[Rfam]
RNA sequence: AAUGAAUGAUGACAACGUGUUUCGGUCCCAUAUGAACACCGAAUGAUUAUGCUCUUAUCCCACUUUCUGACAUU
Numbered sequence: 001a002a003u004g005a006a007u008g009a010u011g012a013c014a015a016c017g018u019g020u021u022u023c024g025g026u027c028c029c030a031u032a033u034g035a036a037c038a039c040c041g042a043a044u045g046a047u048u049a050u051g052c053u054c055u056u057a058u059c060c061c062a063c064u065u066u067c068u069g070a071c072a073u074u
Stems, first nucleotide, its partner, number of pairs: 001074004
RNA: Small nucleolar RNA SNORD73